The family of this 272-nucleotide RNA from Sinocyclocheilus anshuiensis is "Small Cajal body specific RNA 6". Rfam links the family to the GO terms nucleolus and RNA processing. The base pairs follow the family's consensus structure, which is taken from published work.
RNA sequence: GGUCAGUGAUGUGAUGUAAAAGGUCUGAUGUCCAGCUCUUCUUCCAGUCUCCUCGUCCCUCCCAGCCGGCCCUACUAAUACUCCCAAGCAUGCUCUAGUUGUGCAGCCCUGGUUUGAUGUGGCGGCUGAUAUAAUGGAUGUUUCUGCUGCAUAAGAGUCUUUUCGAGAGGAUCCAGUGAGACUCUGACAGAAACAUCCCACAGAAACAUGACACACAGGAGGGCUGGACUGAAGGAGGCUGGUCAGCUGAUCUCAAAAAUCAUUCUGAGACC
Numbered sequence: 001g002g003u004c005a006g007u008g009a010u011g012u013g014a015u016g017u018a019a020a021a022g023g024u025c026u027g028a029u030g031u032c033c034a035g036c037u038c039u040u041c042u043u044c045c046a047g048u049c050u051c052c053u054c055g056u057c058c059c060u061c062c063c064a065g066c067c068g069g070c071c072c073u074a075c076u077a078a079u080a081c082u083c084c085c086a087a088g089c090a091u092g093c094u095c096u097a098g099u100u101g102u103g104c105a106g107c108c109c110u111g112g113u114u115u116g117a118u119g120u121g122g123c124g125g126c127u128g129a130u131a132u133a134a135u136g137g138a139u140g141u142u143u144c145u146g147c148u149g150c151a152u153a154a155g156a157g158u159c160u161u162u163u164c165g166a167g168a169g170g171a172u173c174c175a176g177u178g179a180g181a182c183u184c185u186g187a188c189a190g191a192a193a194c195a196u197c198c199c200a201c202a203g204a205a206a207c208a209u210g211a212c213a214c215a216c217a218g219g220a221g222g223g224c225u226g227g228a229c230u231g232a233a234g235g236a237g238g239c240u241g242g243u244c245a246g247c248u249g250a251u252c253u254c255a256a257a258a259a260u261c262a263u264u265c266u267g268a269g270a271c272c
Base pairs, nucleotide, nucleotide: 001272002271003270004269034253035252037250038249043228044227045226046225047224048223049222059221060220061219062218063128064127065126066125067124068123085112087110088109091106093103136198137197138196139195140194141193142192154185155184156183157182158181159180160179161178163176